[Rfam]
RNA: c-di-GMP-I-GGC riboswitch aptamer
RNA sequence: AUGGUUAAGGGCAAACCCGCUCGAAAGACGGGGACGCAAAGCCACCGGCCUGUGAUGAAAUGAUUAUUUGGUAGCGGGGUUACCCAAU
Number, nucleotide and partner (000 for none) at each position: 001a088002u000003g085004g084005u000006u000007a000008a000009g000010g000011g037012c036013a000014a000015a000016c032017c031018c030019g029020c000021u028022c027023g000024a000025a000026a000027g022028a021029c019030g018031g017032g016033g000034a000035c074036g012037c011038a000039a000040a081041g080042c079043c078044a000045c077046c076047g075048g072049c071050c070051u000052g000053u000054g000055a000056u000057g000058a000059a000060a000061u000062g000063a000064u000065u000066a000067u000068u000069u000070g050071g049072u048073a000074g035075c047076g046077g045078g043079g042080u041081u040082a000083c000084c004085c003086a000087a000088u001